RNA: Mammalian CPEB3 ribozyme
Organism: Alligator mississippiensis
RNA sequence: AGGGUACAAGUUGGAGGCCACAGCAGAAGCGUUCACAGCACAGCCCUGUGUGAUUCCAAUGAAUCUGCAGAUUCUGCU
Numbered sequence: 001a002g003g004g005u006a007c008a009a010g011u012u013g014g015a016g017g018c019c020a021c022a023g024c025a026g027a028a029g030c031g032u033u034c035a036c037a038g039c040a041c042a043g044c045c046c047u048g049u050g051u052g053a054u055u056c057c058a059a060u061g062a063a064u065c066u067g068c069a070g071a072u073u074c075u076g077c078u
Stems, first nucleotide, its partner, number of pairs: 014046001016045003022078007029041001031039001052065005